[Rfam]
RNA sequence: AGCUGCGCAGUGGGCACAAAGCGAACUAUUCUUUCGCCUUUUACUAAAGAAUACCGUGUGCCCGCUGCAAUUAGCAGCAUACGCAUAUUUUUGGAGGGUUCUCUCUUUUGUGAGAAGCC
Numbered sequence: 001a002g003c004u005g006c007g008c009a010g011u012g013g014g015c016a017c018a019a020a021g022c023g024a025a026c027u028a029u030u031c032u033u034u035c036g037c038c039u040u041u042u043a044c045u046a047a048a049g050a051a052u053a054c055c056g057u058g059u060g061c062c063c064g065c066u067g068c069a070a071u072u073a074g075c076a077g078c079a080u081a082c083g084c085a086u087a088u089u090u091u092u093g094g095a096g097g098g099u100u101c102u103c104u105c106u107u108u109u110g111u112g113a114g115a116a117g118c119c
Stems, first nucleotide, its partner, number of pairs: 003077004008067011027053008097118001099116004
Shown here is a 119-nucleotide RNA sequence from Zea mays, a member of the family "U5 spliceosomal RNA".
For this family Rfam cites "Domain analysis of human U5 RNA. Cap trimethylation, protein binding, and spliceosome assembly" (Hinz et al., J Biol Chem, 1996).
The family's consensus secondary structure is taken from published work.
The sequence is in the family's curated seed alignment.